[Rfam]
RNA sequence: GCGGAGGGCCGGAUGGCCGCGGGCCUGCAAGGGCACGAGGAAAGUCCGGACUCCACAAGGCAACGGUGCCGGGUAACGCCCGGGCGGAGCAAUCCGACGGAAAGCGCCACAGAGAACAGACCGCCCCCGCAGGCCGGGGGUAAGGGUGAAACGGUGGGGUAAGAGCCCACCGCGCCCCUGGCAACAGGGGCGGCACGGCAAGCCCCACCGGGAGCAAUGCCAAAUAGGAACCGCGCGAGGGCCUCGGCCCUCGGGGAUGCCUUUGUCCCCAGCAGGUUCGGGUUGGCAGCUAGAGGGCCACGGGCGACUGUGGCUUGAGAGGAAUGGUCAUCCAGAGGGGGCAACUCCUUGGACAGAAUCCGGCUUACAGGCCCUCCGCGCGU
Number, nucleotide and partner (000 for none) at each position: 001g379002c378003g377004g376005a375006g374007g373008g372009c371010c370011g368012g332013a331014u330015g329016g328017c327018c326019g000020c037021g036022g000023g034024c033025c032026u031027g000028c000029a000030a000031g026032g025033g024034c023035a000036c021037g020038a000039g000040g000041a000042a366043a365044g364045u000046c363047c362048g361049g360050a359051c214052u213053c212054c211055a000056c000057a000058a000059g262060g261061c000062a000063a000064c210065g209066g208067u207068g206069c083070c082071g081072g080073g079074u000075a000076a000077c000078g000079c073080c072081c071082g070083g069084g098085c096086g095087g094088a093089g000090c000091a000092a000093u088094c087095c086096g085097a000098c084099g205100g204101a000102a000103a000104g203105c202106g199107c198108c197109a000110c000111a000112g000113a000114g000115a000116a000117c000118a000119g000120a000121c145122c144123g141124c140125c139126c138127c137128c136129g135130c000131a000132g000133g000134c000135c129136g128137g127138g126139g125140g124141u123142a000143a000144g122145g121146g000147u000148g000149a000150a000151a000152c000153g171154g170155u169156g168157g167158g166159g000160u000161a000162a000163g000164a000165g000166c158167c157168c156169a155170c154171c153172g194173c192174g191175c190176c189177c188178c187179u186180g185181g000182c000183a000184a000185c180186a179187g178188g177189g176190g175191c174192g173193g000194c172195a000196c000197g108198g107199c106200a000201a000202g105203c104204c100205c099206c068207a067208c066209c065210g064211g054212g053213a052214g051215c000216a000217a000218u288219g287220c286221c285222a000223a000224a000225u000226a000227g000228g279229a278230a277231c276232c275233g000234c000235g000236c000237g000238a000239g000240g000241g000242c000243c000244u000245c000246g000247g000248c000249c000250c000251u000252c000253g270254g269255g268256g267257a266258u000259g000260c000261c060262u059263u000264u000265g000266u257267c256268c255269c254270c253271a000272g000273c000274a000275g232276g231277u230278u229279c228280g000281g000282g000283u000284u000285g221286g220287c219288a218289g000290c000291u000292a000293g000294a000295g000296g315297g314298c313299c312300a311301c310302g309303g308304g000305c000306g000307a000308c303309u302310g301311u300312g299313g298314c297315u296316u000317g000318a000319g000320a000321g000322g000323a000324a000325u000326g018327g017328u016329c015330a014331u013332c012333c000334a000335g000336a000337g000338g000339g000340g000341g000342c000343a000344a000345c000346u000347c000348c000349u000350u000351g000352g000353a000354c000355a000356g000357a000358a000359u050360c049361c048362g047363g046364c044365u043366u042367a000368c011369a000370g010371g009372c008373c007374c006375u005376c004377c003378g002379c001380g000381c000382g000383u000
RNA: Bacterial RNase P class A
Organism: Litoreibacter ponti